[Rfam]
RNA: U5 spliceosomal RNA
Organism: Smithornis capensis
RNA sequence: AUACUCUGGUUUCUCUUCAGAUCGUAUAAAUCUUUCGCCUUUUACUAAAGAUUUCUGUGACAUUGAGUCCAUGUUAUCUCUUCUCCAUAGAGCACAUUAAUGCUUUU
Numbered sequence: 001a002u003a004c005u006c007u008g009g010u011u012u013c014u015c016u017u018c019a020g021a022u023c024g025u026a027u028a029a030a031u032c033u034u035u036c037g038c039c040u041u042u043u044a045c046u047a048a049a050g051a052u053u054u055c056u057g058u059g060a061c062a063u064u065g066a067g068u069c070c071a072u073g074u075u076a077u078c079u080c081u082u083c084u085c086c087a088u089a090g091a092g093c094a095c096a097u098u099a100a101u102g103c104u105u106u107u
Stems, first nucleotide, its partner, number of pairs: 003068004017060003028054008087107001089106006